[Rfam]
RNA: Group II catalytic intron D1-D4-2
Organism: Sporocytophaga myxococcoides
RNA sequence: GAAGGUAGGCCCUUCGUUGUCGGUUUACAGCGCAGCAUGUCCCGAUAUGUCGGGAAACAGCCAAUAAACAACCUGCGGUGCUUCACAGUCAAUGGUGAGGUAUCGAGCGAUCAGGGAAAAGGACCGCCAGCAGGCGGAGCAUG
Numbered sequence: 001g002a003a004g005g006u007a008g009g010c011c012c013u014u015c016g017u018u019g020u021c022g023g024u025u026u027a028c029a030g031c032g033c034a035g036c037a038u039g040u041c042c043c044g045a046u047a048u049g050u051c052g053g054g055a056a057a058c059a060g061c062c063a064a065u066a067a068a069c070a071a072c073c074u075g076c077g078g079u080g081c082u083u084c085a086c087a088g089u090c091a092a093u094g095g096u097g098a099g100g101u102a103u104c105g106a107g108c109g110a111u112c113a114g115g116g117a118a119a120a121g122g123a124c125c126g127c128c129a130g131c132a133g134g135c136g137g138a139g140c141a142u143g
Base pairs, nucleotide, nucleotide: 001015002014003013004012005011016065017064018063019062021060023058024057025056026055069143070142072116073115074114075112077104078103080101081100082099084097085096086094087093121140124137125136126135
Dot-bracket structure: (((((.....)))))((((.(.((((............................)))).).))))...((.((((.((.(((.((((.....)).)).))).)).......).)))....(..(((........)))..).))